The record is a 100-nucleotide RNA from Methylobacterium sp. BTF04, which matches "Glycine riboswitch aptamer" in Rfam. Lineage of the source: Bacteria > Pseudomonadati > Alphaproteobacteria > Hyphomicrobiales > Methylobacterium. Gene Ontology term of the family: glycine biosynthetic process. The match comes from Rfam's covariance-model search (58 bits).

RNA sequence: AAUGGCGAUACGGGAGAGCCCAGAUCGAUUCAGGUCGAUCAUGGCGCCGACGGAGCAACCACCCCCGGAAACUCUCAGGCACAAUCACCGUAUCGUUUCG
Numbered sequence: 001a002a003u004g005g006c007g008a009u010a011c012g013g014g015a016g017a018g019c020c021c022a023g024a025u026c027g028a029u030u031c032a033g034g035u036c037g038a039u040c041a042u043g044g045c046g047c048c049g050a051c052g053g054a055g056c057a058a059c060c061a062c063c064c065c066c067g068g069a070a071a072c073u074c075u076c077a078g079g080c081a082c083a084a085u086c087a088c089c090g091u092a093u094c095g096u097u098u099c100g
Base pairs, nucleotide, nucleotide: 006095007094008093009092010091011090012089013088020044021043022042046080047079048078049076050075053074054073055072059068060067
Dot-bracket structure: .....((((((((......(((...................))).(((((..(((...((......))...))))).))).......)))))))).....